[Rfam]
RNA sequence: AGUGGGAUUUAACAUAAUAGUGUGGACUGAAUCACACACACAUUUCAAUCCACACUAUUAUGGUAAAUCCCACU
Numbered sequence: 001a002g003u004g005g006g007a008u009u010u011a012a013c014a015u016a017a018u019a020g021u022g023u024g025g026a027c028u029g030a031a032u033c034a035c036a037c038a039c040a041c042a043u044u045u046c047a048a049u050c051c052a053c054a055c056u057a058u059u060a061u062g063g064u065a066a067a068u069c070c071c072a073c074u
Stems, first nucleotide, its partner, number of pairs: 001074011013062014028047004
Record summary: The record is a 74-nucleotide RNA sequence from Macaca mulatta, which matches "mir-4803 microRNA precursor family" in Rfam. The family has 2 seed sequences and 18 matches in Rfam 15.1. NCBI's taxonomy places the organism under Eukaryota, Opisthokonta, Euteleostomi, Sarcopterygii, Macaca.